[Rfam]
RNA: mir-57 microRNA precursor family
Organism: Gongylonema pulchrum
Nucleotides: 082
Base pairs, nucleotide, nucleotide: 012069013068014067015066018063019062020061021060024059025058028057030055032054033053034052036050039047040046
Number, partner (000 for none) and nucleotide at each position: 001000g002000c003000u004000u005000g006000u007000u008000c009000a010000u011000c012069u013068a014067c015066c016000c017000u018063g019062u020061g021060g022000u023000a024059c025058c026000g027000a028057g029000c030055u031000g032054u033053g034052u035000c036050u037000g038000a039047g040046u041000g042000u043000a044000a045000a046040g047039c048000a049000a050036a051000c052034a053033c054032a055030g056000u057028c058025g059024g060021u061020c062019g063018c064000c065000g066015g067014g068013u069012a070000c071000a072000u073000g074000g075000c076000c077000u078000u079000u080000u081000u082000u